Annotation: Gag/pol translational readthrough site: a 62-nucleotide sequence from Mus musculus. Rfam links the family to the GO term viral translational readthrough. Pairs were carried over by alignment from the consensus structure, which is taken from published work. The match comes from Rfam's covariance-model search (71 bits). Lineage of the source: Eukaryota > Deuterostomia > Chordata > Tetrapoda > Mus.

RNA sequence: UAGGGAAGACGGGGCUCGGACCCCCUCCCUGAGCCUAGGGUAACCCUAACUGUGGAGGGGAC
Numbered sequence: 001u002a003g004g005g006a007a008g009a010c011g012g013g014g015c016u017c018g019g020a021c022c023c024c025c026u027c028c029c030u031g032a033g034c035c036u037a038g039g040g041u042a043a044c045c046c047u048a049a050c051u052g053u054g055g056a057g058g059g060g061a062c
Stems, first nucleotide, its partner, number of pairs: 008041001010039001012036004016031001018029002022060006